[Rfam]
RNA sequence: UUUGCAUCGGCAAGUCCUACACAACCAGCUCCUGUUGAAUCCUCCAGGACGGGAACGUAGCAAAGGUAAACGGUUGUAGCGGUGUGAUGUAGGUCGCUUGCCACUUU
Numbered sequence: 001u002u003u004g005c006a007u008c009g010g011c012a013a014g015u016c017c018u019a020c021a022c023a024a025c026c027a028g029c030u031c032c033u034g035u036u037g038a039a040u041c042c043u044c045c046a047g048g049a050c051g052g053g054a055a056c057g058u059a060g061c062a063a064a065g066g067u068a069a070a071c072g073g074u075u076g077u078a079g080c081g082g083u084g085u086g087a088u089g090u091a092g093g094u095c096g097c098u099u100g101c102c103a104c105u106u107u
Stems, first nucleotide, its partner, number of pairs: 009102007017092005022086002024083002